[Rfam]
RNA: Small nucleolar RNA SNORD24
Organism: Oceanites oceanicus
Nucleotides: 082
Base pairs, nucleotide, nucleotide: 001082002081003080004079
Number, partner (000 for none) and nucleotide at each position: 001082u002081g003080c004079c005000a006000c007000a008000a009000u010000g011000a012000u013000g014000a015000c016000a017000u018000u019000u020000a021000u022000u023000u024000g025000c026000u027000a028000c029000u030000c031000u032000u033000g034000a035000u036000c037000a038000a039000g040000a041000g042000a043000a044000u045000g046000a047000u048000g049000a050000g051000c052000a053000c054000u055000u056000c057000u058000a059000c060000c061000a062000c063000c064000a065000u066000a067000a068000c069000c070000u071000u072000g073000c074000u075000c076000u077000g078000a079004g080003g081002c082001a